Rfam assigns this 120-nucleotide RNA from Lotus japonicus to the family "U5 spliceosomal RNA".
RNA sequence: AGCCUCGCAUUAAGCACAAAGCGAACUAUUCUUUCGCCUUUUACUAAAGAAUACCGUGUGCUUGUUGCAAUAAAAGGCAGACGCUAAUUUUUUGAAGGGAUUCUUUCAUUUGAAAGGAAC
Numbered sequence: 001a002g003c004c005u006c007g008c009a010u011u012a013a014g015c016a017c018a019a020a021g022c023g024a025a026c027u028a029u030u031c032u033u034u035c036g037c038c039u040u041u042u043a044c045u046a047a048a049g050a051a052u053a054c055c056g057u058g059u060g061c062u063u064g065u066u067g068c069a070a071u072a073a074a075a076g077g078c079a080g081a082c083g084c085u086a087a088u089u090u091u092u093u094g095a096a097g098g099g100a101u102u103c104u105u106u107c108a109u110u111u112g113a114a115a116g117g118a119a120c
Base pairs, nucleotide, nucleotide: 003077004076005075008067009066011064012063013062014061015060016059017058018057027053028052029051030050031049032048033047034046101119102118103117104116105115106114
Description:
The sequence is in the family's curated seed alignment. Rfam describes the family as follows. U5 RNA is a component of both types of known spliceosome. The precise function of this molecule is unknown, though it is known that the 5' loop is required for splice site selection and p220 binding, and that both the 3' stem-loop and the Sm site are important for Sm protein binding and cap methylation. On this family, see Thomas et al., Nucleic Acids Res 1990: "The spliceosomal snRNAs of Caenorhabditis elegans". Pairs were carried over by alignment from the consensus structure, which is taken from published work. The family's RNA type in Rfam is spliceosomal small nuclear RNA.